Shown here is a 151-nucleotide RNA sequence from Brevibacillus sp. WF146, a member of the family "c-di-AMP riboswitch aptamer (ydaO/yuaA leader)". The organism belongs to Brevibacillus, within Bacteria. A search with the family's covariance model found it, with a score of 77 bits.
RNA sequence: GCCAAAAACAAGCCGAAACUUCCGACAGCGGAAGUGCGGGGGACUUUUUUUGCAGACCACGGUCUGCAUGGGGUGAAUCGCCGAAUGGCGAAGGGUUGUCUCCUCAAUCCCAACCCGACAACUAACCUCGUAGGCGAAGAAAAGGAGACGA
Numbered sequence: 001g002c003c004a005a006a007a008a009c010a011a012g013c014c015g016a017a018a019c020u021u022c023c024g025a026c027a028g029c030g031g032a033a034g035u036g037c038g039g040g041g042g043a044c045u046u047u048u049u050u051u052g053c054a055g056a057c058c059a060c061g062g063u064c065u066g067c068a069u070g071g072g073g074u075g076a077a078u079c080g081c082c083g084a085a086u087g088g089c090g091a092a093g094g095g096u097u098g099u100c101u102c103c104u105c106a107a108u109c110c111c112a113a114c115c116c117g118a119c120a121a122c123u124a125a126c127c128u129c130g131u132a133g134g135c136g137a138a139g140a141a142a143a144g145g146a147g148a149c150g151a
Stems, first nucleotide, its partner, number of pairs: 012135003018035007036131006046070001071116003079090004093110004